[Rfam]
RNA sequence: UUUGCACCCAAACCCAAAGGCCCCACCUCCCCGUGGUGGGGUUUUGUUUGGCGUGCGCACAGCAAACUGAACCCUGUCGCCUUUCUCUGACGCUGCUGUGCCUUUGAAAGUGAAUCCAGGGUUGGACAGGA
Number, nucleotide and partner (000 for none) at each position: 001u000002u000003u057004g056005c055006a054007c053008c000009c051010a000011a000012a000013c000014c000015c000016a000017a000018a000019g043020g042021c041022c040023c039024c038025a037026c036027c035028u000029c000030c000031c000032c000033g000034u000035g027036g026037u025038g024039g023040g022041g021042u020043u019044u000045u000046g000047u000048u000049u000050g000051g009052c000053g007054u006055g005056c004057g003058c000059a000060c000061a000062g000063c000064a000065a000066a000067c000068u124069g000070a123071a122072c121073c120074c119075u118076g000077u000078c000079g000080c000081c110082u109083u108084u107085c106086u000087c000088u000089g102090a000091c100092g000093c000094u000095g000096c000097u000098g000099u000100g091101c000102c089103u000104u000105u000106g085107a084108a083109a082110g081111u000112g000113a000114a000115u000116c000117c000118a075119g074120g073121g072122u071123u070124g068125g000126a000127c000128a000129g000130g000131a000